[Rfam]
RNA: mir-92 microRNA precursor family
Organism: Pantherophis guttatus
RNA sequence: CUUCCUCCCUGGGUUGGGAUCAGUUGUAUUACUCGGACGUCUCUGAAUAGUAUUGCACUUGUCCCGGCCUGUGGAGGGCGA
Numbered sequence: 001c002u003u004c005c006u007c008c009c010u011g012g013g014u015u016g017g018g019a020u021c022a023g024u025u026g027u028a029u030u031a032c033u034c035g036g037a038c039g040u041c042u043c044u045g046a047a048u049a050g051u052a053u054u055g056c057a058c059u060u061g062u063c064c065c066g067g068c069c070u071g072u073g074g075a076g077g078g079c080g081a
Stems, first nucleotide, its partner, number of pairs: 004077003010071005016065005022059003026056003030052004
Dot-bracket structure: ...(((...(((((.(((((.(((.(((.((((...............)))).)))))).))))).)))))...)))....